RNA sequence: UUUGUAUUAGUUACAAACACAGGGCCUUUUUUGAAGACCCGAUGUAAAAUUUUUGACAGCCUCACUUGUGUAGUGCGGAUU
Numbered sequence: 001u002u003u004g005u006a007u008u009a010g011u012u013a014c015a016a017a018c019a020c021a022g023g024g025c026c027u028u029u030u031u032u033g034a035a036g037a038c039c040c041g042a043u044g045u046a047a048a049a050u051u052u053u054u055g056a057c058a059g060c061c062u063c064a065c066u067u068g069u070g071u072a073g074u075g076c077g078g079a080u081u
Stems, first nucleotide, its partner, number of pairs: 022040003026036003058080001060078002063075004